[Rfam]
RNA sequence: GCGGGCACUUGGCAGCCUUGUGAUGUCAUACAGAGAAGUCACAGGGCGGUAUCUGAGGGUCUGU
Numbered sequence: 001g002c003g004g005g006c007a008c009u010u011g012g013c014a015g016c017c018u019u020g021u022g023a024u025g026u027c028a029u030a031c032a033g034a035g036a037a038g039u040c041a042c043a044g045g046g047c048g049g050u051a052u053c054u055g056a057g058g059g060u061c062u063g064u
Base pairs, nucleotide, nucleotide: 001064002063003062004061005060006059008057009056012053015047016046017045018044019043020042021041022040023039024038025031026030
Rfam assigns this 64-nucleotide RNA sequence from Monodelphis domestica to the family "MAT2A 3'UTR stem loop B". By type it is a cis-regulatory element. On this family, see Parker et al., Genome Res 2011: "New families of human regulatory RNA structures identified by comparative analysis of vertebrate genomes". It is one of the family's seed sequences.